A member of the RNA family "mir-1788 microRNA precursor family" from Danio rerio, 75 nucleotides long.
Gene Ontology terms of the family: RISC complex and miRNA-mediated post-transcriptional gene silencing.
The organism belongs to Danio, within Eukaryota.
RNA sequence: UUGUAUCCGAGGCUUGUUUUAAGUUGCCUGCGAUCUCUUAAUGACUCAGGCAGCUAAAGCAAGUCUGGGAGGCCA
Numbered sequence: 001u002u003g004u005a006u007c008c009g010a011g012g013c014u015u016g017u018u019u020u021a022a023g024u025u026g027c028c029u030g031c032g033a034u035c036u037c038u039u040a041a042u043g044a045c046u047c048a049g050g051c052a053g054c055u056a057a058a059g060c061a062a063g064u065c066u067g068g069g070a071g072g073c074c075a
Stems, first nucleotide, its partner, number of pairs: 003073002006070003010066011022055009032045001